Rfam assigns this 82-nucleotide RNA sequence from Drosophila gunungcola to the family "mir-973 microRNA precursor family".
[Rfam]
RNA sequence: UGACUUUUCGCGUUUGGCGGAUGAACUUAGAUUUUUCUUAUUUGUAAAAACAAAUCUGUUCAUUCCUCGACGCAAAAAGUUG
Number, nucleotide and partner (000 for none) at each position: 001u000002g081003a080004c079005u078006u077007u076008u075009c000010g073011c072012g071013u000014u070015u069016g068017g067018c000019g065020g000021a000022u062023g061024a060025a059026c058027u000028u000029a057030g056031a055032u054033u053034u052035u000036u000037c000038u000039u000040a000041u000042u000043u000044g000045u000046a000047a000048a000049a000050a000051c000052a034053a033054a032055u031056c030057u029058g026059u025060u024061c023062a022063u000064u000065c019066c000067u017068c016069g015070a014071c012072g011073c010074a000075a008076a007077a006078a005079g004080u003081u002082g000

Gene Ontology terms of the family: RISC complex and miRNA-mediated post-transcriptional gene silencing.